[Rfam]
RNA sequence: CAUGCACAGGCAAUGGCACUGGAAGAAUUCACGGGUUUAUUUUAACAUUCCCGUGGACUCUUAGUGGCAUCACUGGUGGUGG
Numbered sequence: 001c002a003u004g005c006a007c008a009g010g011c012a013a014u015g016g017c018a019c020u021g022g023a024a025g026a027a028u029u030c031a032c033g034g035g036u037u038u039a040u041u042u043u044a045a046c047a048u049u050c051c052c053g054u055g056g057a058c059u060c061u062u063a064g065u066g067g068c069a070u071c072a073c074u075g076g077u078g079g080u081g082g
Stems, first nucleotide, its partner, number of pairs: 005078003009074002013070003017066002020063003023059001025058001029056006
This 82-nucleotide RNA sequence from Pieris macdunnoughi belongs to the Rfam family "mir-263 microRNA precursor family". Its Rfam clan is "mir-182 clan". It scores 71 bits against the family's covariance model. Rfam 15.1 lists 368 matches to the family in 211 species. For this family Rfam cites "Direct sequencing and expression analysis of a large number of miRNAs in Aedes aegypti and a multi-species survey of novel mosquito miRNAs" (Li et al., BMC Genomics, 2009).